[Rfam]
RNA sequence: GGAACGGGCCUUUCAGGCAUCCUCUCCCAAACUUUCAAGCCCGGCUGGCAACGGCCGGGCUUUUCUUUUUGGUCA
Numbered sequence: 001g002g003a004a005c006g007g008g009c010c011u012u013u014c015a016g017g018c019a020u021c022c023u024c025u026c027c028c029a030a031a032c033u034u035u036c037a038a039g040c041c042c043g044g045c046u047g048g049c050a051a052c053g054g055c056c057g058g059g060c061u062u063u064u065c066u067u068u069u070u071g072g073u074c075a
Base pairs, nucleotide, nucleotide: 008018009017010016011015039060040059041058042057043056044055045054046053047052
A member of the RNA family "Makes More Granules Regulator RNA (mmgR)" from Croceibacterium mercuriale, 75 nucleotides long. A search with the family's covariance model found it, with a score of 44 bits. Its family is annotated with DNA-templated transcription, termination, protein binding and response to nitrogen compound in the Gene Ontology. Its Rfam clan is "suhB sRNA clan".